[Rfam]
RNA sequence: ACCUUCUUGUAUAAGCACUGUGCUAAAAUUACAGAAACCAAGAUAGCCUUGGUUUUUGUAAUAAUGCUAGCAGAGUAUUACACAAGAAGAAGAGGAACUGCACUAGAUUGUAAAGACUGGGGUGGACCUCUUUCUUAAUGUCCAGUGUCCUUUGUCUUAAGAUUUGGUGCAAUAUGU
Numbered sequence: 001a002c003c004u005u006c007u008u009g010u011a012u013a014a015g016c017a018c019u020g021u022g023c024u025a026a027a028a029u030u031a032c033a034g035a036a037a038c039c040a041a042g043a044u045a046g047c048c049u050u051g052g053u054u055u056u057u058g059u060a061a062u063a064a065u066g067c068u069a070g071c072a073g074a075g076u077a078u079u080a081c082a083c084a085a086g087a088a089g090a091a092g093a094g095g096a097a098c099u100g101c102a103c104u105a106g107a108u109u110g111u112a113a114a115g116a117c118u119g120g121g122g123u124g125g126a127c128c129u130c131u132u133u134c135u136u137a138a139u140g141u142c143c144a145g146u147g148u149c150c151u152u153u154g155u156c157u158u159a160a161g162a163u164u165u166g167g168u169g170c171a172a173u174a175u176g177u
Stems, first nucleotide, its partner, number of pairs: 018075002021072005028065004034056002037053006099171009119148001121146001123144004
RNA: Small nucleolar RNA SNORA81